[Rfam]
RNA sequence: GCUCCCAUAGCUCAGUUGGUAGAGCGCUUCCAUGGUAAGGAAGAGGUCACCAGUUCGAGUCUGGUUGGGAGCU
Numbered sequence: 001g002c003u004c005c006c007a008u009a010g011c012u013c014a015g016u017u018g019g020u021a022g023a024g025c026g027c028u029u030c031c032a033u034g035g036u037a038a039g040g041a042a043g044a045g046g047u048c049a050c051c052a053g054u055u056c057g058a059g060u061c062u063g064g065u066u067g068g069g070a071g072c073u
Stems, first nucleotide, its partner, number of pairs: 001072007010025004027043005049065005
Annotation
The record is a 73-nucleotide RNA sequence from Melghirimyces thermohalophilus, which matches "tRNA" in Rfam. The match comes from Rfam's covariance-model search (69 bits).